[Rfam]
RNA sequence: UUCGUGCGGCGACACGGCCAUAAUUUUCCCCAGUGUUGCUCAUGACUGCGAAUCUUCUCCACGCGGUUGUUUCGAGUGUCAGGCCGUGUCAAGACCAACGAAGGACGUCUCAGCACCCUUUAUCCUCUCUUUCCUCUGGAAACACUCGUUUUUCGUGGAAGGGAGGAUGGGUCGGUGGUUCUUACAGAU
Numbered sequence: 001u002u003c004g005u006g007c008g009g010c011g012a013c014a015c016g017g018c019c020a021u022a023a024u025u026u027u028c029c030c031c032a033g034u035g036u037u038g039c040u041c042a043u044g045a046c047u048g049c050g051a052a053u054c055u056u057c058u059c060c061a062c063g064c065g066g067u068u069g070u071u072u073c074g075a076g077u078g079u080c081a082g083g084c085c086g087u088g089u090c091a092a093g094a095c096c097a098a099c100g101a102a103g104g105a106c107g108u109c110u111c112a113g114c115a116c117c118c119u120u121u122a123u124c125c126u127c128u129c130u131u132u133c134c135u136c137u138g139g140a141a142a143c144a145c146u147c148g149u150u151u152u153u154c155g156u157g158g159a160a161g162g163g164a165g166g167a168u169g170g171g172u173c174g175g176u177g178g179u180u181c182u183u184a185c186a187g188a189u
Stems, first nucleotide, its partner, number of pairs: 023089002026086001038077004046066004101183006120170009130160004
RNA: small nucleolar RNA snR35